[Rfam]
RNA sequence: UUGUUGAAUGGAAGACGCAUAAGAAUAUUAUGGUCGUCUGGUCGUUCUGAGCAACACAGAGCAUAGCGAAGGCCGUGCUAUCGUUUCAGUCGUCAGAUGCGUAAGAUUGACGAUUCGAUUGUUGACGCGGUGACAC
Numbered sequence: 001u002u003g004u005u006g007a008a009u010g011g012a013a014g015a016c017g018c019a020u021a022a023g024a025a026u027a028u029u030a031u032g033g034u035c036g037u038c039u040g041g042u043c044g045u046u047c048u049g050a051g052c053a054a055c056a057c058a059g060a061g062c063a064u065a066g067c068g069a070a071g072g073c074c075g076u077g078c079u080a081u082c083g084u085u086u087c088a089g090u091c092g093u094c095a096g097a098u099g100c101g102u103a104a105g106a107u108u109g110a111c112g113a114u115u116c117g118a119u120u121g122u123u124g125a126c127g128c129g130g131u132g133a134c135a136c
Stems, first nucleotide, its partner, number of pairs: 006047005013039005072131001074129004080119004089114007098105001
Dot-bracket structure: .....(((((..(((((.................)))))...)))))........................(.((((..((((.....(((((((..(......)..))))))).))))......)))).).....